[Rfam]
RNA: Purine riboswitch aptamer
RNA sequence: AGAGGAAAAAAUAAAUACCCUCAUAUAUCAUGGGAAUAUGGCCCAUACGUUUCUACCCGAUUACCGUAAAUAAUCGGACUAUGAGGGAAAGUAGAUAUUUU
Numbered sequence: 001a002g003a004g005g006a007a008a009a010a011a012u013a014a015a016u017a018c019c020c021u022c023a024u025a026u027a028u029c030a031u032g033g034g035a036a037u038a039u040g041g042c043c044c045a046u047a048c049g050u051u052u053c054u055a056c057c058c059g060a061u062u063a064c065c066g067u068a069a070a071u072a073a074u075c076g077g078a079c080u081a082u083g084a085g086g087g088a089a090a091g092u093a094g095a096u097a098u099u100u101u
Stems, first nucleotide, its partner, number of pairs: 018087008030046005057077007